[Rfam]
RNA sequence: UGGGAGAUUGAUACACGGAUAGAGAGAAAUACUGCUCGUUCUGUACUGAUCUCCCUAUAGUAAUUAUGCCCUUUGAUGACCGGGACGAAAUAUGAGAAAUCGUAACGGACAGAUACGGGGCAGACAAUC
Numbered sequence: 001u002g003g004g005a006g007a008u009u010g011a012u013a014c015a016c017g018g019a020u021a022g023a024g025a026g027a028a029a030u031a032c033u034g035c036u037c038g039u040u041c042u043g044u045a046c047u048g049a050u051c052u053c054c055c056u057a058u059a060g061u062a063a064u065u066a067u068g069c070c071c072u073u074u075g076a077u078g079a080c081c082g083g084g085a086c087g088a089a090a091u092a093u094g095a096g097a098a099a100u101c102g103u104a105a106c107g108g109a110c111a112g113a114u115a116c117g118g119g120g121c122a123g124a125c126a127a128u129c
Stems, first nucleotide, its partner, number of pairs: 002055006015044004022037003067122006080108003085103004

Small Cajal body specific RNA 8: a 129-nucleotide sequence from Hymenochirus boettgeri. Gene Ontology terms of the family: Cajal body, RNA processing and nucleolus. The base pairs follow the family's consensus structure, which is taken from published work. It scores 112 bits against the family's covariance model. The organism belongs to Hymenochirus, within Eukaryota. On this family, see Darzacq et al., EMBO J 2002: "Cajal body-specific small nuclear RNAs: a novel class of 2'-O-methylation and pseudouridylation guide RNAs".